Notes: Bacterial RNase P class A: a 417-nucleotide RNA from Roseospirillum parvum. Lineage of the source: Bacteria > Pseudomonadota > Alphaproteobacteria > Rhodospirillales > Roseospirillum.

RNA sequence: UCAGGUGGCUGGAUGGCCGCCCCGGUUCGCCCGGCGAACCGGGGAGGAAAGUCCGGGCUCCAUGGAAACACGGUGCCGGGUAACGCCCGGCGAGGGAAACCUCAGGGAAAGUGCCACAGAGAGCAGACCGCCACCGCACCGGCUCGCCGGUCCGGCGGCAAGGGUGAAAGGGUGCGGUAAAAGCGCACCGCGCCCCCGGCGACGGGGGCGGCAGGGCAAACCCCACCGGGAGCAAGACCGAAUAGGGACGGCAGGCCGGCGGGUCCUUCGGGGCCCCUGUCGGCAGGCGGGUUUUCGCGCCGCCGUCCGGGUGUGUCGCGCCAGGCGUCCGGCAACGGGCGUCGCAGACGAAUGGCCAUCCAGCGGACCCCCUCGGGGGCCCGUGGACAGAACCCGGCUUACAGGCCACCUGACGCG
Numbered sequence: 001u002c003a004g005g006u007g008g009c010u011g012g013a014u015g016g017c018c019g020c021c022c023c024g025g026u027u028c029g030c031c032c033g034g035c036g037a038a039c040c041g042g043g044g045a046g047g048a049a050a051g052u053c054c055g056g057g058c059u060c061c062a063u064g065g066a067a068a069c070a071c072g073g074u075g076c077c078g079g080g081u082a083a084c085g086c087c088c089g090g091c092g093a094g095g096g097a098a099a100c101c102u103c104a105g106g107g108a109a110a111g112u113g114c115c116a117c118a119g120a121g122a123g124c125a126g127a128c129c130g131c132c133a134c135c136g137c138a139c140c141g142g143c144u145c146g147c148c149g150g151u152c153c154g155g156c157g158g159c160a161a162g163g164g165u166g167a168a169a170g171g172g173u174g175c176g177g178u179a180a181a182a183g184c185g186c187a188c189c190g191c192g193c194c195c196c197c198g199g200c201g202a203c204g205g206g207g208g209c210g211g212c213a214g215g216g217c218a219a220a221c222c223c224c225a226c227c228g229g230g231a232g233c234a235a236g237a238c239c240g241a242a243u244a245g246g247g248a249c250g251g252c253a254g255g256c257c258g259g260c261g262g263g264u265c266c267u268u269c270g271g272g273g274c275c276c277c278u279g280u281c282g283g284c285a286g287g288c289g290g291g292u293u294u295u296c297g298c299g300c301c302g303c304c305g306u307c308c309g310g311g312u313g314u315g316u317c318g319c320g321c322c323a324g325g326c327g328u329c330c331g332g333c334a335a336c337g338g339g340c341g342u343c344g345c346a347g348a349c350g351a352a353u354g355g356c357c358a359u360c361c362a363g364c365g366g367a368c369c370c371c372c373u374c375g376g377g378g379g380c381c382c383g384u385g386g387a388c389a390g391a392a393c394c395c396g397g398c399u400u401a402c403a404g405g406c407c408a409c410c411u412g413a414c415g416c417g
Stems, first nucleotide, its partner, number of pairs: 001413010011402001012360007020044009049400003053397005058232004066295003071228005076090005091105001092103004106223002111221002113217003128163002130159003134155003138151005171189006190212001191210008236317003246308006286301004324343008